[Rfam]
RNA sequence: GUCAAUGACCCCCGGAGAGAUCGCCGGAGGCUUGUAAGAGCCUUCAUUGACUAGCCUGAGUCCUUUACUGGACUACGUUCGAGCGGUCACGAUACCUCCAGGUGUCUACGCUAGCCUGGAGCCCUAUCGCCUGUGAUUAAAAGUUCUGAUGGGUAGGAACGGUGUUGCAGACCGAACAAGCCGCUUGAACAUUGGCGAAGCGUACCAUAC
Numbered sequence: 001g002u003c004a005a006u007g008a009c010c011c012c013c014g015g016a017g018a019g020a021u022c023g024c025c026g027g028a029g030g031c032u033u034g035u036a037a038g039a040g041c042c043u044u045c046a047u048u049g050a051c052u053a054g055c056c057u058g059a060g061u062c063c064u065u066u067a068c069u070g071g072a073c074u075a076c077g078u079u080c081g082a083g084c085g086g087u088c089a090c091g092a093u094a095c096c097u098c099c100a101g102g103u104g105u106c107u108a109c110g111c112u113a114g115c116c117u118g119g120a121g122c123c124c125u126a127u128c129g130c131c132u133g134u135g136a137u138u139a140a141a142a143g144u145u146c147u148g149a150u151g152g153g154u155a156g157g158a159a160c161g162g163u164g165u166u167g168c169a170g171a172c173c174g175a176a177c178a179a180g181c182c183g184c185u186u187g188a189a190c191a192u193u194g195g196c197g198a199a200g201c202g203u204a205c206c207a208u209a210c
Stems, first nucleotide, its partner, number of pairs: 001051008010030002012027002015022002031040003054196003058192001059074005077190011092127002096121008104206001107204006129172001131170007141163001143160005149154001